[Rfam]
RNA sequence: ACAAAAAAGGACUCGCGGGUAACCCCAGCGAGCCGAUAGUAUCCGUGCACUCUUGCACCGAUACUGAAAUGGGAGAGGAGAAACCGGAGGAAGAGCUUAUGGGGAAACGUAAGUCUUCUCCGCGG
Numbered sequence: 001a002c003a004a005a006a007a008a009g010g011a012c013u014c015g016c017g018g019g020u021a022a023c024c025c026c027a028g029c030g031a032g033c034c035g036a037u038a039g040u041a042u043c044c045g046u047g048c049a050c051u052c053u054u055g056c057a058c059c060g061a062u063a064c065u066g067a068a069a070u071g072g073g074a075g076a077g078g079a080g081a082a083a084c085c086g087g088a089g090g091a092a093g094a095g096c097u098u099a100u101g102g103g104g105a106a107a108c109g110u111a112a113g114u115c116u117u118c119u120c121c122g123c124g125g
Base pairs, nucleotide, nucleotide: 012032013031014030015029016028018026019025033073034072036070037069042061043060045058046057047056085122086121087120088119090118091117092116093115095114096113097112098111099110
RNA: ylbH leader
Organism: Polycladomyces abyssicola